A member of the RNA family "DsrA RNA" from [Enterobacter] lignolyticus, 85 nucleotides long. On this family, see Sledjeski and Gottesman, Proc Natl Acad Sci USA 1995: "A small RNA acts as an antisilencer of the H-NS-silenced rcsA gene of Escherichia coli". DsrA RNA regulates both transcription, by overcoming transcriptional silencing by the nucleoid-associated H-NS protein, and translation, by promoting efficient translation of the stress sigma factor, RpoS. These two activities of DsrA can be separated by mutation: the first of three stem-loops of the 85 nucleotide RNA is necessary for RpoS translation but not for anti-H-NS action, while the second stem-loop is essential for antisilencing and less critical for RpoS translation. The third stem-loop, which behaves as a transcription terminator, can be substituted by the trp transcription terminator without loss of either DsrA function. The sequence of the first stem-loop of DsrA is complementary with the upstream leader portion of RpoS messenger RNA, suggesting that pairing of DsrA with the RpoS message might be important for translational regulation. It is annotated as a small RNA. Its family is annotated with positive regulation of translation and mRNA transcription in the Gene Ontology.
Nucleotides: 085
Base pairs, nucleotide, nucleotide: 004022005021006020007019008018009017010016026058027057028056029054030053031051035047036046037045038044061082062081063080064079065078066077068075069074
Number, partner (000 for none) and nucleotide at each position: 001000c002000c003000c004022g005021c006020a007019u008018c009017a010016g011000a012000u013000u014000u015000u016010c017009u018008g019007g020006u021005g022004u023000a024000a025000c026058g027057a028056a029054u030053u031051u032000a033000c034000a035047a036046g037045u038044g039000c040000u041000u042000c043000u044038u045037g046036c047035u048000c049000u050000g051031g052000c053030a054029a055000g056028u057027u058026u059000c060000u061082g062081c063080c064079c065078g066077g067000c068075c069074c070000u071000g072000a073000u074069g075068g076000a077066c078065c079064g080063g081062g082061c083000u084000u085000u